This 151-nucleotide RNA sequence from Saezia sanguinis belongs to the Rfam family "radC RNA". The family's RNA type in Rfam is cis-regulatory element. Lineage of the source: Bacteria > Pseudomonadati > Betaproteobacteria > Burkholderiales > Saezia.
RNA sequence: CAAUGAAAAACAUGUAACGCCGCUGAGUCGGCAACAUGCCCAGGCAGCCAGGAUCAUUAGGGCUGCGAUACAGAUGUUUAUCUGCAUUGAUCCAUCUAGUCCGUUCUCAGCAUCCGACACGCGGACGAUCAUCUGAAAUGAUGAAGGAUGU
Dot-bracket structure: ..........((((....(((((...).))))..)))).....((((((..[[[[.....))))))(((.(((((....))))).)))]]]]............................(((.....(((((......)))))....)))